Rfam assigns this 121-nucleotide sequence from [Mannheimia] succiniciproducens to the family "Ribosomal S15 leader". Pairs were carried over by alignment from the consensus structure, which is taken from published work. The E. coli Ribosomal S15 gene 5' UTR can form two alternative structures. One that is a series of three hairpins, The other includes a pseudoknot. Rfam's curators put it in the seed alignment.
RNA sequence: UGUCGUAGCUGAAUUAGAGAUCGGCAAACGAUGUACUAUUAACUUACUUUUUAGGAGUAAUAAAAUGUCUCUAAGCGUAGAAAAAAAAGCUGCAAUCGUAGCUGAAUUCGGUCGUGAUGCA
Numbered sequence: 001u002g003u004c005g006u007a008g009c010u011g012a013a014u015u016a017g018a019g020a021u022c023g024g025c026a027a028a029c030g031a032u033g034u035a036c037u038a039u040u041a042a043c044u045u046a047c048u049u050u051u052u053a054g055g056a057g058u059a060a061u062a063a064a065a066u067g068u069c070u071c072u073a074a075g076c077g078u079a080g081a082a083a084a085a086a087a088a089g090c091u092g093c094a095a096u097c098g099u100a101g102c103u104g105a106a107u108u109c110g111g112u113c114g115u116g117a118u119g120c121a
Base pairs, nucleotide, nucleotide: 008025009024010023011022012021051075052074054072055071056070057069